RNA: Small nucleolar RNA SNORD21
RNA sequence: GCUGUGUGAUGAUGCUUGCAGUGACUGAACACGCUGUAUUGGUCCAUGGCGUGUAUCUGAUGUACUGCAGUGUUUCAAGACGGGACUGAUGGCAGC
Numbered sequence: 001g002c003u004g005u006g007u008g009a010u011g012a013u014g015c016u017u018g019c020a021g022u023g024a025c026u027g028a029a030c031a032c033g034c035u036g037u038a039u040u041g042g043u044c045c046a047u048g049g050c051g052u053g054u055a056u057c058u059g060a061u062g063u064a065c066u067g068c069a070g071u072g073u074u075u076c077a078a079g080a081c082g083g084g085a086c087u088g089a090u091g092g093c094a095g096c
Stems, first nucleotide, its partner, number of pairs: 001093004